[Rfam]
RNA: SAM riboswitch aptamer (S box leader)
Organism: Gemmiger sp. An194
RNA sequence: AACUUAUCAAGAGUGACGGAGGGAACAGGCCCUGUGAAGUCCGGCAACCUGCAUGAUGCAAGGUGCCAAAUCCUGCGGGAAACCGAAAGAUAAGCG
Numbered sequence: 001a002a003c004u005u006a007u008c009a010a011g012a013g014u015g016a017c018g019g020a021g022g023g024a025a026c027a028g029g030c031c032c033u034g035u036g037a038a039g040u041c042c043g044g045c046a047a048c049c050u051g052c053a054u055g056a057u058g059c060a061a062g063g064u065g066c067c068a069a070a071u072c073c074u075g076c077g078g079g080a081a082a083c084c085g086a087a088a089g090a091u092a093a094g095c096g
Stems, first nucleotide, its partner, number of pairs: 003094006013042001015041003021032003026075004043067004048063002050060004071088001076085003